This 69-nucleotide sequence from Microcaecilia unicolor belongs to the Rfam family "mir-139 microRNA precursor family". The family has 29 seed sequences and 598 matches in Rfam 15.1.
RNA sequence: CUGCAUUCUACAGUGCAUGUGUCUCCAGUUUUUAGUAGACAACUGGAGAUACAGCCCUGUUGGAAUAAC
Number, nucleotide and partner (000 for none) at each position: 001c000002u000003g000004c000005a000006u065007u064008c063009u062010a060011c059012a058013g057014u000015g055016c054017a000018u053019g052020u051021g050022u049023c048024u047025c046026c045027a044028g043029u042030u000031u000032u000033u000034a000035g000036u000037a000038g000039a000040c000041a000042a029043c028044u027045g026046g025047a024048g023049a022050u021051a020052c019053a018054g016055c015056c000057c013058u012059g011060u010061u000062g009063g008064a007065a006066u000067a000068a000069c000
The family's consensus secondary structure was predicted with RNAalifold. Rfam links the family to the GO terms RISC complex and miRNA-mediated post-transcriptional gene silencing. Lineage of the source: Eukaryota > Craniata > Gnathostomata > Amphibia > Microcaecilia. On this family, see Murchison et al., Genome Res 2008: "Conservation of small RNA pathways in platypus".